[Rfam]
RNA sequence: GUCCAGCAUUAAGAGUUGGGCUGACACCCACGCCAACCUGCCUCCCGGGCAAGGUGGUGUCCUUUGUAAAAGGGAAAUGCGGCUGUAACCGGCAAACAAACGGGAUAUU
Numbered sequence: 001g002u003c004c005a006g007c008a009u010u011a012a013g014a015g016u017u018g019g020g021c022u023g024a025c026a027c028c029c030a031c032g033c034c035a036a037c038c039u040g041c042c043u044c045c046c047g048g049g050c051a052a053g054g055u056g057g058u059g060u061c062c063u064u065u066g067u068a069a070a071a072g073g074g075a076a077a078u079g080c081g082g083c084u085g086u087a088a089c090c091g092g093c094a095a096a097c098a099a100a101c102g103g104g105a106u107a108u109u
Base pairs, nucleotide, nucleotide: 006080007079008078009077010076015031017030018029019028020027032058033057034056037054038053039052040050041049042048045104046103082093083092084091085090
Dot-bracket structure: .....(((((....(.((((......)))))(((..((((((..[[.))).))).))).................))))).((((....)))).........]].....
This 109-nucleotide sequence from Varunaivibrio sulfuroxidans belongs to the Rfam family "SAM-I/IV (S-adenosyl methionine) riboswitch aptamer".